Shown here is a 99-nucleotide sequence from Desulforamulus ferrireducens, a member of the family "Guanidine-I riboswitch aptamer".
The source organism's lineage runs through Bacteria, Bacillota, Clostridia, Peptococcaceae and Desulforamulus.
[Rfam]
RNA sequence: GGAAAGUGUACCUAGGGUUCCACAAUUCCUAUGGAGUUGGUUUGGUCCAAGCGGUACAAGCGUUUACGCUACACCGAUAGGGAUAAAAGCCCAGGCGGU
Number, nucleotide and partner (000 for none) at each position: 001g000002g000003a000004a000005a000006g000007u058008g057009u056010a055011c054012c053013u000014a000015g048016g047017g000018u000019u000020c045021c044022a042023c039024a038025a037026u036027u035028c034029c000030u000031a000032u000033g000034g028035a027036g026037u025038u024039g023040g000041u000042u022043u000044g021045g020046u000047c016048c015049a000050a000051g000052c000053g012054g011055u010056a009057c008058a007059a070060g069061c068062g067063u000064u000065u000066a000067c062068g061069c060070u059071a000072c094073a000074c097075c000076g000077a000078u000079a000080g092081g091082g090083a000084u000085a000086a000087a000088a000089g000090c082091c081092c080093a000094g072095g000096c000097g074098g000099u000

It scores 66 bits against the family's covariance model.